[Rfam]
RNA sequence: ACCCAGAGUCGUUACUGGCGUGUACGGGUGGAAGUGACCACUGGGGAGCGGCUGGAGCGGGUGCGACACCGAACGCCUGGGUGUCACCG
Numbered sequence: 001a002c003c004c005a006g007a008g009u010c011g012u013u014a015c016u017g018g019c020g021u022g023u024a025c026g027g028g029u030g031g032a033a034g035u036g037a038c039c040a041c042u043g044g045g046g047a048g049c050g051g052c053u054g055g056a057g058c059g060g061g062u063g064c065g066a067c068a069c070c071g072a073a074c075g076c077c078u079g080g081g082u083g084u085c086a087c088c089g
Stems, first nucleotide, its partner, number of pairs: 003057001007053006015045002017077005028041004066084005
RNA: ZMP/ZTP riboswitch aptamer (pfl RNA motif)
Organism: Actinokineospora terrae